This 119-nucleotide RNA sequence from Providencia sneebia belongs to the Rfam family "Phenylalanine leader peptide". It is annotated as a cis-regulatory leader. Taxonomically the source falls in Providencia sneebia (Bacteria, Pseudomonadati, Pseudomonadota, Gammaproteobacteria). The match comes from Rfam's covariance-model search (83 bits). The base pairs follow the family's consensus structure, which was predicted with CMfinder.
RNA sequence: AAUGAAUACGAAUUUUGUUUUCUUUUUUUUCUUUAGUCACUUUUAUUAGGGGCUGCUGUCGUUCGAGAAAGAAAAGAAGACACAAUUUUAAAGCCCCCUACUUAGGGGGCUUUUUUAUU
Numbered sequence: 001a002a003u004g005a006a007u008a009c010g011a012a013u014u015u016u017g018u019u020u021u022c023u024u025u026u027u028u029u030u031c032u033u034u035a036g037u038c039a040c041u042u043u044u045a046u047u048a049g050g051g052g053c054u055g056c057u058g059u060c061g062u063u064c065g066a067g068a069a070a071g072a073a074a075a076g077a078a079g080a081c082a083c084a085a086u087u088u089u090a091a092a093g094c095c096c097c098c099u100a101c102u103u104a105g106g107g108g109g110c111u112u113u114u115u116u117a118u119u
Stems, first nucleotide, its partner, number of pairs: 012086003017081014032066002035063001038050001040049002051060003090113010